[Rfam]
RNA sequence: ACGACCCUGCGCACUCGAAGCCUCUCGCUCUGCGAAAGGCCCGUAGUAGGGCUGCGUGGGGUCAC
Numbered sequence: 001a002c003g004a005c006c007c008u009g010c011g012c013a014c015u016c017g018a019a020g021c022c023u024c025u026c027g028c029u030c031u032g033c034g035a036a037a038g039g040c041c042c043g044u045a046g047u048a049g050g051g052c053u054g055c056g057u058g059g060g061g062u063c064a065c
Base pairs, nucleotide, nucleotide: 003063004062005061006060007059008058009057010056011055012054013053014051015050016049020040021039022038023037025035026034027033028032
The record is a 65-nucleotide sequence from Croceicoccus mobilis, which matches "DUF3800-VIII RNA" in Rfam. A search with the family's covariance model found it, with a score of 44 bits. Rfam's curators write: Bacteroidetes, Cyanobacteria, Firmicutes, Planctomycetes (1 example), Proteobacteria, Tenericutes (1 example). Pairs were carried over by alignment from the consensus structure, which is taken from published work.